This 91-nucleotide RNA sequence from Phytoactinopolyspora halotolerans belongs to the Rfam family "DUF3800-IV RNA".
Rfam classes the family as a small RNA.
NCBI's taxonomy places the organism under Bacteria, Bacillati, Actinomycetes, Jiangellales, Phytoactinopolyspora.
It scores 70 bits against the family's covariance model.
Pairs were carried over by alignment from the consensus structure, which is taken from published work.

[Rfam]
RNA sequence: AGGCUCCUCGAGGUGCCUGCCAGGAAAGCCUGCGUUGCUGCCAGCGCUGCCCCAACAGGGGAUCGGCUCCUGGAGGCUCCUCGGGGAGUCU
Numbered sequence: 001a002g003g004c005u006c007c008u009c010g011a012g013g014u015g016c017c018u019g020c021c022a023g024g025a026a027a028g029c030c031u032g033c034g035u036u037g038c039u040g041c042c043a044g045c046g047c048u049g050c051c052c053c054a055a056c057a058g059g060g061g062a063u064c065g066g067c068u069c070c071u072g073g074a075g076g077c078u079c080c081u082c083g084g085g086g087a088g089u090c091u
Stems, first nucleotide, its partner, number of pairs: 001091013015077004020073006028067003032047006052061002